[Rfam]
RNA sequence: UGAGUAGGCUGGAUAGUCGCGGAUGCCUUUGGCAGACGAGGAAAGUCCGAGCUCCGUAGGGCAAGGAUGCUGGGUAAUCCCCAGUGGAGGCGACUCUAAGGAUAGUGCAACAGAGAUAUACCGCCAGAAGGCUUUGUCUUCUGGUAAGGGUGGAAAGGUGAGGUAAGGGCUCACCAGCGGUUAGGCGACUAACUGGCUAUGUAAACCCCAUCCGGAGCAAGACCAAGUAGGGACUCAAAAAGGGGGCUGCCCGUCCCUGUCCCGGAGGUAGGUCGCUUGAGCCUUAUGGUAACAUAAGGCCUAGAUAGAUGACUAUUCAAGACAGAACUCGGCUUAUAGGCCUAGUCAUCAU
Numbered sequence: 001u002g003a004g005u006a007g008g009c010u011g012g013a014u015a016g017u018c019g020c021g022g023a024u025g026c027c028u029u030u031g032g033c034a035g036a037c038g039a040g041g042a043a044a045g046u047c048c049g050a051g052c053u054c055c056g057u058a059g060g061g062c063a064a065g066g067a068u069g070c071u072g073g074g075u076a077a078u079c080c081c082c083a084g085u086g087g088a089g090g091c092g093a094c095u096c097u098a099a100g101g102a103u104a105g106u107g108c109a110a111c112a113g114a115g116a117u118a119u120a121c122c123g124c125c126a127g128a129a130g131g132c133u134u135u136g137u138c139u140u141c142u143g144g145u146a147a148g149g150g151u152g153g154a155a156a157g158g159u160g161a162g163g164u165a166a167g168g169g170c171u172c173a174c175c176a177g178c179g180g181u182u183a184g185g186c187g188a189c190u191a192a193c194u195g196g197c198u199a200u201g202u203a204a205a206c207c208c209c210a211u212c213c214g215g216a217g218c219a220a221g222a223c224c225a226a227g228u229a230g231g232g233a234c235u236c237a238a239a240a241a242g243g244g245g246g247c248u249g250c251c252c253g254u255c256c257c258u259g260u261c262c263c264g265g266a267g268g269u270a271g272g273u274c275g276c277u278u279g280a281g282c283c284u285u286a287u288g289g290u291a292a293c294a295u296a297a298g299g300c301c302u303a304g305a306u307a308g309a310u311g312a313c314u315a316u317u318c319a320a321g322a323c324a325g326a327a328c329u330c331g332g333c334u335u336a337u338a339g340g341c342c343u344a345g346u347c348a349u350c351a352u
Base pairs, nucleotide, nucleotide: 001348002347003346005344006343007342008341009340010339011337012317013316014315015314016313017312018311020038021037024034025033026032027031043335044334045333047332048331049330050329051328052217053216054215055214060252061251065213066212067211068210069209070084071083072082073081074080085099086097087096088095089094100208101207105206106205107202108201109200121149122148123145124144125143126142127141128140129139130138131137157175158174159173160172161171162170177197178195179194180193181192182191183190184189221274222273223272224271231262232261233260234259243257244256245255246254247253281300282299283298284297285296286295287294288293
RNA: Bacterial RNase P class A
Organism: Peptoclostridium acidaminophilum